[Rfam]
Nucleotides: 095
Base pairs, nucleotide, nucleotide: 014039015038016037017036018035026054027053028052029051030050060082061081062080063079064078065077066076
Number, partner (000 for none) and nucleotide at each position: 001000c002000a003000c004000c005000a006000a007000u008000u009000a010000u011000u012000u013000g014039c015038u016037c017036c018035c019000g020000c021000u022000a023000a024000c025000c026054a027053a028052g029051a030050c031000c032000u033000a034000u035018g036017g037016g038015a039014g040000g041000a042000u043000a044000a045000a046000u047000u048000a049000c050030g051029u052028c053027u054026u055000u056000c057000a058000u059000a060082u061081c062080c063079a064078g065077u066076a067000g068000u069000g070000a071000g072000g073000g074000a075000u076066u077065a078064c079063u080062g081061g082060a083000a084000a085000u086000a087000a088000g089000u090000u091000u092000c093000a094000c095000u